RNA: Mammalian CPEB3 ribozyme
RNA sequence: ACAGUAUUACAGGGCCAUAGAAGAAGCGUUCAUGUCGCAUUCAUGUUCAUGUCAGAGUCUUAUAAAUCUGCAAAUUCUGUU
Numbered sequence: 001a002c003a004g005u006a007u008u009a010c011a012g013g014g015c016c017a018u019a020g021a022a023g024a025a026g027c028g029u030u031c032a033u034g035u036c037g038c039a040u041u042c043a044u045g046u047u048c049a050u051g052u053c054a055g056a057g058u059c060u061u062a063u064a065a066a067u068c069u070g071c072a073a074a075u076u077c078u079g080u081u
Stems, first nucleotide, its partner, number of pairs: 012048004019081002022078004026038003053070004058065001